[Rfam]
RNA sequence: AUUGGAAGCUGCUGGGACCAGUUGGGACCACUCAUGGGCAAAAGAAACGUGUUUUGUCCACUGCUGCAGCCUUCCUAGAGUGAAGUGGAGGUCUCUGUCUGCUUUAGGAGAGCAAACUAAGUCGGAUCGUUCCCCUCCAUACACG
Numbered sequence: 001a002u003u004g005g006a007a008g009c010u011g012c013u014g015g016g017a018c019c020a021g022u023u024g025g026g027a028c029c030a031c032u033c034a035u036g037g038g039c040a041a042a043a044g045a046a047a048c049g050u051g052u053u054u055u056g057u058c059c060a061c062u063g064c065u066g067c068a069g070c071c072u073u074c075c076u077a078g079a080g081u082g083a084a085g086u087g088g089a090g091g092u093c094u095c096u097g098u099c100u101g102c103u104u105u106a107g108g109a110g111a112g113c114a115a116a117c118u119a120a121g122u123c124g125g126a127u128c129g130u131u132c133c134c135c136u137c138c139a140u141a142c143a144c145g
Stems, first nucleotide, its partner, number of pairs: 004075003008070005035060005044053002087138005095129001097127003101123001103121005
RNA: Small Cajal body specific RNA 3